[Rfam]
RNA sequence: UAACCUAUCCAGCAAUGGGUAGCUGAACGGUCAGAAGUCAGCAGAAGCCAUAGUACAAGUCGGUCUAGAACGACUUGGAAGGGC
Numbered sequence: 001u002a003a004c005c006u007a008u009c010c011a012g013c014a015a016u017g018g019g020u021a022g023c024u025g026a027a028c029g030g031u032c033a034g035a036a037g038u039c040a041g042c043a044g045a046a047g048c049c050a051u052a053g054u055a056c057a058a059g060u061c062g063g064u065c066u067a068g069a070a071c072g073a074c075u076u077g078g079a080a081g082g083g084c
Base pairs, nucleotide, nucleotide: 001025002024005022006021007020008019009018010017011016038045039044047084048083049082056077057076058075059074060073061072